[Rfam]
RNA: Nitrogen stress-induced RNA 1
RNA sequence: UCGUAGACUUCAAAUAAGAAGUCUCUUAUAAAACGCUAAUUGCCCCAGUAACCAAACGGUUACUGGGGCUUUUUUUU
Numbered sequence: 001u002c003g004u005a006g007a008c009u010u011c012a013a014a015u016a017a018g019a020a021g022u023c024u025c026u027u028a029u030a031a032a033a034c035g036c037u038a039a040u041u042g043c044c045c046c047a048g049u050a051a052c053c054a055a056a057c058g059g060u061u062a063c064u065g066g067g068g069c070u071u072u073u074u075u076u077u
Base pairs, nucleotide, nucleotide: 002035003034004033042069043068044067045066046065047064048063049062050061051060052059